Shown here is a 173-nucleotide RNA sequence from Leptotrichia shahii, a member of the family "glmS glucosamine-6-phosphate activated ribozyme aptamer". Taxonomically the source falls in Leptotrichia (Bacteria, Fusobacteriota, Fusobacteriia, Fusobacteriales). Gene Ontology terms of the family: regulation of gene expression and catalytic activity. The base pairs follow the family's consensus structure, which is taken from published work.
RNA sequence: AGAUAUAAAAAAGCGCCAGUUCUUUAGAAAUAAUUUUAAAUAUAUUAUGGCUAAAGAAGACGAGGAAAAGGGUUAUCGAAGUAAUCGGCGGAUGCUCUUUAGGUGGUUACAGCCUCAAUAAUAUACAAAAAUUUCAAGUAAUUGGAAUUACAAAAAUAUUAUAGUAACAUUUU
Numbered sequence: 001a002g003a004u005a006u007a008a009a010a011a012a013g014c015g016c017c018a019g020u021u022c023u024u025u026a027g028a029a030a031u032a033a034u035u036u037u038a039a040a041u042a043u044a045u046u047a048u049g050g051c052u053a054a055a056g057a058a059g060a061c062g063a064g065g066a067a068a069a070g071g072g073u074u075a076u077c078g079a080a081g082u083a084a085u086c087g088g089c090g091g092a093u094g095c096u097c098u099u100u101a102g103g104u105g106g107u108u109a110c111a112g113c114c115u116c117a118a119u120a121a122u123a124u125a126c127a128a129a130a131a132u133u134u135c136a137a138g139u140a141a142u143u144g145g146a147a148u149u150a151c152a153a154a155a156a157u158a159u160u161a162u163a164g165u166a167a168c169a170u171u172u173u
Stems, first nucleotide, its partner, number of pairs: 020058008067100005076088004101115004106110001119161005131148007